[Rfam]
RNA sequence: AAAACUUAGGUACAAUUCUUUAGAUACUUUUUGUGUGGUUCUUAACUAAAAAUACAUCUUUUUUGGAGUAACAAACUUUAAGAAAAUUAUGGAUUUAAAGAAAUCAUGAUGAAUUUAGUUAAGAACCAUACGAAAAGCACAUAAGGAAUUGUACGUAAGUUUU
Numbered sequence: 001a002a003a004a005c006u007u008a009g010g011u012a013c014a015a016u017u018c019u020u021u022a023g024a025u026a027c028u029u030u031u032u033g034u035g036u037g038g039u040u041c042u043u044a045a046c047u048a049a050a051a052a053u054a055c056a057u058c059u060u061u062u063u064u065g066g067a068g069u070a071a072c073a074a075a076c077u078u079u080a081a082g083a084a085a086a087u088u089a090u091g092g093a094u095u096u097a098a099a100g101a102a103a104u105c106a107u108g109a110u111g112a113a114u115u116u117a118g119u120u121a122a123g124a125a126c127c128a129u130a131c132g133a134a135a136a137g138c139a140c141a142u143a144a145g146g147a148a149u150u151g152u153a154c155g156u157a158a159g160u161u162u163u
Base pairs, nucleotide, nucleotide: 002162003161004160005159006158007157008156010154011153012152013151015149016148017147018146019145020144021143022142025139027137028136029135030134031133032132033131034130035129036128037127038126039125040124041123042122043121045119046118047117048116049115050114

The record is a 163-nucleotide RNA sequence from Medicago truncatula, which matches "MIR2606 microRNA precursor family" in Rfam. The base pairs follow the family's consensus structure, which was predicted with RNAalifold. NCBI's taxonomy places the organism under Eukaryota, Fabales, Papilionoideae, Trifolieae, Medicago.